Shown here is a 193-nucleotide sequence from Brugia malayi, a member of the family "U2 spliceosomal RNA". Its family is annotated with mRNA branch site recognition, U2 snRNP and pre-mRNA branch point binding in the Gene Ontology. Rfam classes the family as a spliceosomal small nuclear RNA.
RNA sequence: AUCGCUUCUCGGCCUAUUGGCUAAGAUCAAAGUGUAGUAUCUGUUCUUAUCAGCUUAAUCUCUGAUAUGUGGUCAAUCGAUCACUUCGAGAUUAUCCUAUUUUUGAGACCAUGGUGGGUUUGAAGGGGCUUGCUCCUCACCUACCGCGGGUCGACCCGGUAUUGCACCUACCUCCGGGAACGGCCCAUUCACC
Dot-bracket structure: ......(((.((((....)))).))).....................((((((........)))))).((((((....))))))............................(((((((.....((((....))))..)))))))..((((((.(((((..............)))))..)))))).......